[Rfam]
RNA sequence: UUAUGUGGGUGAUGAAACCAUUAUAUAUCAGUUAUCCCUGUCUGAUGCUUUGGUGCUGAUGAUUCAUGGUCUGACACACAC
Numbered sequence: 001u002u003a004u005g006u007g008g009g010u011g012a013u014g015a016a017a018c019c020a021u022u023a024u025a026u027a028u029c030a031g032u033u034a035u036c037c038c039u040g041u042c043u044g045a046u047g048c049u050u051u052g053g054u055g056c057u058g059a060u061g062a063u064u065c066a067u068g069g070u071c072u073g074a075c076a077c078a079c080a081c
Base pairs, nucleotide, nucleotide: 002080004078005077006076007075
Rfam assigns this 81-nucleotide sequence from Cucurbita maxima to the family "Small nucleolar RNA R38".
snoR38 is a C/D box small nucleolar RNA conserved across yeast, human, Arabidopsis and rice. It is encoded in the intron of elongation factor-1 gamma in both pombe and cerevisiae. snoR38 guides the methylation of 2'-O-ribose sites in 28S rRNA.
Pairs were carried over by alignment from the consensus structure, which was predicted with PFOLD.
The family's RNA type in Rfam is C/D-box small nucleolar RNA.
Its family is annotated with RNA processing and nucleolus in the Gene Ontology.